[Rfam]
RNA sequence: CCCAGCGUUAAAACGCUGGGCUAUGUUUAUGCUGUCCCUCCGGGACG
Numbered sequence: 001c002c003c004a005g006c007g008u009u010a011a012a013a014c015g016c017u018g019g020g021c022u023a024u025g026u027u028u029a030u031g032c033u034g035u036c037c038c039u040c041c042g043g044g045a046c047g
Stems, first nucleotide, its partner, number of pairs: 001020008034046005
The record is a 47-nucleotide RNA from Candidatus Electrothrix aarhusensis, which matches "Acido-Lenti-1 RNA" in Rfam.
A search with the family's covariance model found it, with a score of 41 bits.
By type it is a small RNA.
The family's consensus secondary structure is taken from published work.